[Rfam]
RNA: Selenocysteine insertion sequence 1
Organism: Myripristis murdjan
RNA sequence: GGCAGUUUGUGACGGCUUUGCCUGAAAGCUUUCUGUGAGCUGGACAAGGCCUGAUGUUAUUGCU
Dot-bracket structure: ...((........(((((((.((.....(((.....)))..)).)))))))...........))
Numbered sequence: 001g002g003c004a005g006u007u008u009g010u011g012a013c014g015g016c017u018u019u020g021c022c023u024g025a026a027a028g029c030u031u032u033c034u035g036u037g038a039g040c041u042g043g044a045c046a047a048g049g050c051c052u053g054a055u056g057u058u059a060u061u062g063c064u
Stems, first nucleotide, its partner, number of pairs: 004064002014051007022043002029039003